[Rfam]
This 82-nucleotide sequence belongs to the Rfam family "Small nucleolar RNA R12". By type it is a C/D-box small nucleolar RNA. The base pairs follow the family's consensus structure, which was predicted with PFOLD. From the family's description: snoR12 is a C/D box small nucleolar RNA, which acts as a methylation guide for 25S ribosomal RNA in plants. snoR12 has been alternatively named snoZ44 in Arabidopsis and snoZ131 in rice. Gene Ontology terms of the family: RNA processing and nucleolus. For this family Rfam cites "The high diversity of snoRNAs in plants: identification and comparative study of 120 snoRNA genes from Oryza sativa" (Chen et al., Nucleic Acids Res, 2003).

RNA sequence: UUGAGGAUGAAGAAGAAAAUCAGACGGAUUCCCAUUGAUUUCAAAUCGAAAUGUGAUCUUUAACCAGCUACUUCCGACUCAA
Dot-bracket structure: (((((........................................................................)))))